[Rfam]
RNA sequence: GAGGGGCGUCUUACCUGUGCAUUAUUAGAUUUAGCGUAUUUUAUGAAAACGCUUCUAAUACUGUCAGGUAAUGACGCUUUUC
Numbered sequence: 001g002a003g004g005g006g007c008g009u010c011u012u013a014c015c016u017g018u019g020c021a022u023u024a025u026u027a028g029a030u031u032u033a034g035c036g037u038a039u040u041u042u043a044u045g046a047a048a049a050c051g052c053u054u055c056u057a058a059u060a061c062u063g064u065c066a067g068g069u070a071a072u073g074a075c076g077c078u079u080u081u082c
Base pairs, nucleotide, nucleotide: 001082002081003080004079005078006077007076008075009074010073011071012070013069014068015067016066017065020063021062023060024059025058026057027056028055029054